[Rfam]
Nucleotides: 069
Base pairs, nucleotide, nucleotide: 014026015025016024017023031065032059033058037054038053039052041050042049043048
Number, partner (000 for none) and nucleotide at each position: 001000c002000u003000u004000g005000a006000u007000c008000g009000a010000g011000c012000c013000c014026a015025g016024c017023c018000a019000c020000a021000g022000c023017g024016g025015c026014u027000g028000g029000u030000c031065c032059c033058g034000g035000u036000c037054c038053u039052g040000c041050c042049c043048g044000u045000a046000g047000g048043u049042g050041g051000c052039c053038a054037g055000c056000a057000a058033c059032g060000c061000c062000u063000g064000u065031g066000c067000c068000u069000c